[Rfam]
RNA sequence: GAUGGUAAGUCCAUCAGAGUCGUUGUAUAGGCGAUGGCUCUAAACCCCCUAAAGGUGUUGUUGUAAAGAGCUCCGAAGCCUCGGGGGUGCUGAGCGUUUAGGAGAAUCCAAUCCACGAGGUUGGCAAGG
Numbered sequence: 001g002a003u004g005g006u007a008a009g010u011c012c013a014u015c016a017g018a019g020u021c022g023u024u025g026u027a028u029a030g031g032c033g034a035u036g037g038c039u040c041u042a043a044a045c046c047c048c049c050u051a052a053a054g055g056u057g058u059u060g061u062u063g064u065a066a067a068g069a070g071c072u073c074c075g076a077a078g079c080c081u082c083g084g085g086g087g088u089g090c091u092g093a094g095c096g097u098u099u100a101g102g103a104g105a106a107u108c109c110a111a112u113c114c115a116c117g118a119g120g121u122u123g124g125c126a127a128g129g
Base pairs, nucleotide, nucleotide: 001015002014003013004012005011016041017040018039019038020037021036023034024033025032026031046129048102049101050100051099052098053097054091055090057088058087059085068082069081070079071078107126108124109123110122111121112120
Shown here is a 129-nucleotide sequence from Psychroflexus torquis, a member of the family "Group II catalytic intron D1-D4-2". Rfam links the family to the GO term Group II intron splicing. Rfam describes the family as follows. Group II introns are found in rRNA, tRNA and mRNA of organelles in fungi, plants and protists, and also in mRNA in bacteria. On this family, see Bonen and Vogel, Trends Genet 2001: "The ins and outs of group II introns". The organism belongs to Psychroflexus torquis, within Bacteria.